[Rfam]
RNA sequence: CUCCCUCAGCCCUACUCCUGGGUCUUUUGCUGUGAAGGCCCCGGCAUUGCCUGAGGGUACAGGACCAAGCGCACGUCCCUCCCCAGGAAGACUCUGUGUUCUCCUGGGGCCUACAGCUUGAGCUGACAGU
Numbered sequence: 001c002u003c004c005c006u007c008a009g010c011c012c013u014a015c016u017c018c019u020g021g022g023u024c025u026u027u028u029g030c031u032g033u034g035a036a037g038g039c040c041c042c043g044g045c046a047u048u049g050c051c052u053g054a055g056g057g058u059a060c061a062g063g064a065c066c067a068a069g070c071g072c073a074c075g076u077c078c079c080u081c082c083c084c085a086g087g088a089a090g091a092c093u094c095u096g097u098g099u100u101c102u103c104c105u106g107g108g109g110c111c112u113a114c115a116g117c118u119u120g121a122g123c124u125g126a127c128a129g130u
Stems, first nucleotide, its partner, number of pairs: 003057007011049001017044002020041008068124003072120002081109006089102003
Rfam assigns this 130-nucleotide sequence from Neogale vison to the family "Small nucleolar RNA SNORA49". About the family: The snoRNA ACA49 has no identified RNA target. NB genomic sequence 1-nt different from published.